Shown here is a 35-nucleotide RNA from Kordia algicida, a member of the family "DUF805b RNA".
NCBI's taxonomy places the organism under Bacteria, Bacteroidota, Flavobacteriia, Flavobacteriaceae, Kordia algicida.
By type it is a cis-regulatory element.

RNA sequence: AAAGGGUAAACUGAAAACCUUUAACAGAGUAAGUA
Numbered sequence: 001a002a003a004g005g006g007u008a009a010a011c012u013g014a015a016a017a018c019c020u021u022u023a024a025c026a027g028a029g030u031a032a033g034u035a
Stems, first nucleotide, its partner, number of pairs: 002021004010034003